[Rfam]
RNA sequence: UAAUACCAAAGAGGCGCAUGCUUCAGAUAGCUUGAUCGAGAUCAACCGUCGAUGACAUCAAGUGAAGGGAGAGCGUGCCGAAACAAGUUUUUAAGGUUGUUAAAUACUUGUUGGUUACUAGGGCUGAAUCCCUAGGACUGUCACAAGAGAUAUUGUGGAGAACUUUGGGGGGU
Numbered sequence: 001u002a003a004u005a006c007c008a009a010a011g012a013g014g015c016g017c018a019u020g021c022u023u024c025a026g027a028u029a030g031c032u033u034g035a036u037c038g039a040g041a042u043c044a045a046c047c048g049u050c051g052a053u054g055a056c057a058u059c060a061a062g063u064g065a066a067g068g069g070a071g072a073g074c075g076u077g078c079c080g081a082a083a084c085a086a087g088u089u090u091u092u093a094a095g096g097u098u099g100u101u102a103a104a105u106a107c108u109u110g111u112u113g114g115u116u117a118c119u120a121g122g123g124c125u126g127a128a129u130c131c132c133u134a135g136g137a138c139u140g141u142c143a144c145a146a147g148a149g150a151u152a153u154u155g156u157g158g159a160g161a162a163c164u165u166u167g168g169g170g171g172g173u
Stems, first nucleotide, its partner, number of pairs: 006168006016078008030063007082112007090104004113139004118135006141158006
A member of the RNA family "Lysine riboswitch aptamer" from Bacteriovorax sp. BSW11_IV, 173 nucleotides long.
Pairs were carried over by alignment from the consensus structure, which is taken from published work.
NCBI's taxonomy places the organism under Bacteria, Bdellovibrionota, Bacteriovoracia, Bacteriovoracaceae, Bacteriovorax.